[Rfam]
The family of this 102-nucleotide RNA from Halanaerobacter jeridensis is "Purine riboswitch aptamer".

RNA sequence: UCAAUAAUAUAUUCGUAUCUUCGUAUACCUUUGGCAAUAAGGGUCAAAAGUUUCUACCAGUUAGCCGCAAACUAACUGACUACGAAGGGCAAUUUUCUGUUU
Dot-bracket structure: .................((((((((....((((((.......)))))).........(((((((.......)))))))..))))))))..............